[Rfam]
RNA: RAGATH-25 RNA
RNA sequence: CUCAAUGGGAUUCUCCUAAAAAAGAGAAAAUCGUCCGGAUCAGGACA
Numbered sequence: 001c002u003c004a005a006u007g008g009g010a011u012u013c014u015c016c017u018a019a020a021a022a023a024g025a026g027a028a029a030a031u032c033g034u035c036c037g038g039a040u041c042a043g044g045a046c047a
Stems, first nucleotide, its partner, number of pairs: 006018005033046004